[Rfam]
RNA sequence: UUUCAACUUGCGCAAGGGAUAACAGCGACAUCCUUUUUUUACGAGCUUUUUGCGAGUAGAAAAAGAUAUAGCGAAUAGCCCGACCUUUA
Numbered sequence: 001u002u003u004c005a006a007c008u009u010g011c012g013c014a015a016g017g018g019a020u021a022a023c024a025g026c027g028a029c030a031u032c033c034u035u036u037u038u039u040u041a042c043g044a045g046c047u048u049u050u051u052g053c054g055a056g057u058a059g060a061a062a063a064a065g066a067u068a069u070a071g072c073g074a075a076u077a078g079c080c081c082g083a084c085c086u087u088u089a
Stems, first nucleotide, its partner, number of pairs: 016081003020077002025072002030067003036062007

The family of this 89-nucleotide RNA sequence from Polaribacter pacificus is "Flavo-1 RNA". The source organism's lineage runs through Bacteria, Bacteroidota, Flavobacteriia, Flavobacteriaceae and Polaribacter.